[Rfam]
RNA: Glycine riboswitch aptamer
Organism: Paenibacillus polymyxa
RNA sequence: UUGAUGUUUGCGGGAGAUGGAACGAAAGUUCCGACCGAAGGGGCAAAACUCUCAGGUGCUUAAGCUGAUUUACAGCAACAAGCAG
Numbered sequence: 001u002u003g004a005u006g007u008u009u010g011c012g013g014g015a016g017a018u019g020g021a022a023c024g025a026a027a028g029u030u031c032c033g034a035c036c037g038a039a040g041g042g043g044c045a046a047a048a049c050u051c052u053c054a055g056g057u058g059c060u061u062a063a064g065c066u067g068a069u070u071u072a073c074a075g076c077a078a079c080a081a082g083c084a085g
Stems, first nucleotide, its partner, number of pairs: 008078004013073001019032004034057003037053002041051003